RNA sequence: CAUCAAGUGCGGCCGACGACAAACCGUGGAUGGAGGCGGGGGACCCAACCGGUCCACCGAAGAAAUCAGGACCAGGAGCCUCGGCUCCUUGGGGUGAAGCCUGCUUAGCAGGCCGGGCAACCUCUCCAGCCCGAACCCGACAGCUGACCUCGCAGGCGUUGACGAGAGGACUG
Numbered sequence: 001c002a003u004c005a006a007g008u009g010c011g012g013c014c015g016a017c018g019a020c021a022a023a024c025c026g027u028g029g030a031u032g033g034a035g036g037c038g039g040g041g042g043a044c045c046c047a048a049c050c051g052g053u054c055c056a057c058c059g060a061a062g063a064a065a066u067c068a069g070g071a072c073c074a075g076g077a078g079c080c081u082c083g084g085c086u087c088c089u090u091g092g093g094g095u096g097a098a099g100c101c102u103g104c105u106u107a108g109c110a111g112g113c114c115g116g117g118c119a120a121c122c123u124c125u126c127c128a129g130c131c132c133g134a135a136c137c138c139g140a141c142a143g144c145u146g147a148c149c150u151c152g153c154a155g156g157c158g159u160u161g162a163c164g165a166g167a168g169g170a171c172u173g
Base pairs, nucleotide, nucleotide: 012157013156014155020033036153037152038151039150040149041148046091047090092138093137094136100112101111102110103109115132116131117130118129

Annotation
The family of this 173-nucleotide sequence from Mycolicibacterium llatzerense is "c-di-AMP riboswitch aptamer (ydaO/yuaA leader)". The pairing is the family consensus, mapped onto this sequence.